The record is a 204-nucleotide RNA sequence from Nocardioides dongxiaopingii, which matches "Actinobacteria sRNA Ms_IGR-5" in Rfam. It is annotated as a small RNA.
RNA sequence: ACACGGAAGGGAGGUGGUCCUACACAAUGCAUUCUCAUAGGACAAGUGAGGUGGCUGCGCACUAGCAGCCCAGCAACGCGUCGGGACCGACUACCCGACGAGGCUGCUGGUCAAUCCACCGCAGUCACCCGACCCGCAGGCGAACCCGGACCAUGUCCCCGGGGGCGGCCUCCCCACGGAGGCCACGCCUGCGGGUUGUCCGUU
Numbered sequence: 001a002c003a004c005g006g007a008a009g010g011g012a013g014g015u016g017g018u019c020c021u022a023c024a025c026a027a028u029g030c031a032u033u034c035u036c037a038u039a040g041g042a043c044a045a046g047u048g049a050g051g052u053g054g055c056u057g058c059g060c061a062c063u064a065g066c067a068g069c070c071c072a073g074c075a076a077c078g079c080g081u082c083g084g085g086a087c088c089g090a091c092u093a094c095c096c097g098a099c100g101a102g103g104c105u106g107c108u109g110g111u112c113a114a115u116c117c118a119c120c121g122c123a124g125u126c127a128c129c130c131g132a133c134c135c136g137c138a139g140g141c142g143a144a145c146c147c148g149g150a151c152c153a154u155g156u157c158c159c160c161g162g163g164g165g166c167g168g169c170c171u172c173c174c175c176a177c178g179g180a181g182g183c184c185a186c187g188c189c190u191g192c193g194g195g196u197u198g199u200c201c202g203u204u
Stems, first nucleotide, its partner, number of pairs: 014058005061111006068104003073099001130198013145163005
A search with the family's covariance model found it, with a score of 88 bits.